[Rfam]
RNA sequence: CGGUAACUCCGAGUCCUGAACAGGAUAGGAGUAACGGCUGUUUGGCCCAGCCAUCGGUACAGUUGUUCGACAAAUCAACGGGGAGAGUAGCCCCACAAGAACAGGUGGUCCCGUGAACCACAAUAUCCCAAUCCAGCGGUGCGGUGCCGUGGGAAUCCCACGGCUUUAGCCGUGGGA
Numbered sequence: 001c002g003g004u005a006a007c008u009c010c011g012a013g014u015c016c017u018g019a020a021c022a023g024g025a026u027a028g029g030a031g032u033a034a035c036g037g038c039u040g041u042u043u044g045g046c047c048c049a050g051c052c053a054u055c056g057g058u059a060c061a062g063u064u065g066u067u068c069g070a071c072a073a074a075u076c077a078a079c080g081g082g083g084a085g086a087g088u089a090g091c092c093c094c095a096c097a098a099g100a101a102c103a104g105g106u107g108g109u110c111c112c113g114u115g116a117a118c119c120a121c122a123a124u125a126u127c128c129c130a131a132u133c134c135a136g137c138g139g140u141g142c143g144g145u146g147c148c149g150u151g152g153g154a155a156u157c158c159c160a161c162g163g164c165u166u167u168a169g170c171c172g173u174g175g176g177a
Stems, first nucleotide, its partner, number of pairs: 003035002007031004013026005036052005055113003059109002063104006081094003126154004156177009
Sense overlapping transcript RNA 0042 (sot): a 177-nucleotide sequence from uncultured archaeon A07HR60. The family's consensus secondary structure was predicted with RNAfold. It is associated with IS1341-type transposase (tnpB) genes, at the 3'-end in H. salinarum NRC-1. The tetraloop structural motif may be functional. By type it is a small RNA. The match comes from Rfam's covariance-model search (100 bits).